RNA: Streptomyces sRNA 4677
Organism: Streptomyces scabiei
RNA sequence: GGGUCCGGCGGGCCGCUGACCUCCUGAAAGAACCGGGGGAAAGAACUACCCGCCCACCCACCCUCCCUGGCCGCGAGGCCCGCGUCACCCGUCCGAGUGACCGGCUUGCAGGCGCGGGAUGCGGGCGGUUACGUUCGCCGCGACAACCGCAAACAGAUACGGCCCCCGGCCGGGACUGGCAUCCCGAACGAGGGCCUGACCAACCAGGAAGUAAACGGCUUCCCA
Numbered sequence: 001g002g003g004u005c006c007g008g009c010g011g012g013c014c015g016c017u018g019a020c021c022u023c024c025u026g027a028a029a030g031a032a033c034c035g036g037g038g039g040a041a042a043g044a045a046c047u048a049c050c051c052g053c054c055c056a057c058c059c060a061c062c063c064u065c066c067c068u069g070g071c072c073g074c075g076a077g078g079c080c081c082g083c084g085u086c087a088c089c090c091g092u093c094c095g096a097g098u099g100a101c102c103g104g105c106u107u108g109c110a111g112g113c114g115c116g117g118g119a120u121g122c123g124g125g126c127g128g129u130u131a132c133g134u135u136c137g138c139c140g141c142g143a144c145a146a147c148c149g150c151a152a153a154c155a156g157a158u159a160c161g162g163c164c165c166c167c168g169g170c171c172g173g174g175a176c177u178g179g180c181a182u183c184c185c186g187a188a189c190g191a192g193g194g195c196c197u198g199a200c201c202a203a204c205c206a207g208g209a210a211g212u213a214a215a216c217g218g219c220u221u222c223c224c225a
Stems, first nucleotide, its partner, number of pairs: 007204001008201001012071004085100004090095001114138004161196005167190002172185004207223005